The record is a 77-nucleotide sequence from Caenorhabditis elegans, which matches "SmY spliceosomal RNA" in Rfam. Pairs were carried over by alignment from the consensus structure, which is taken from published work. By type it is a spliceosomal small nuclear RNA. It is one of the family's seed sequences.
RNA sequence: GUUAAACCAUAACUAACUCAGGGCCUUGUUAAAGACCCGAAGUACAAUUUUUGAAGCCCUGUCUCUCGAGGCAGGGG
Numbered sequence: 001g002u003u004a005a006a007c008c009a010u011a012a013c014u015a016a017c018u019c020a021g022g023g024c025c026u027u028g029u030u031a032a033a034g035a036c037c038c039g040a041a042g043u044a045c046a047a048u049u050u051u052u053g054a055a056g057c058c059c060u061g062u063c064u065c066u067c068g069a070g071g072c073a074g075g076g077g
Stems, first nucleotide, its partner, number of pairs: 021038003025034003057076008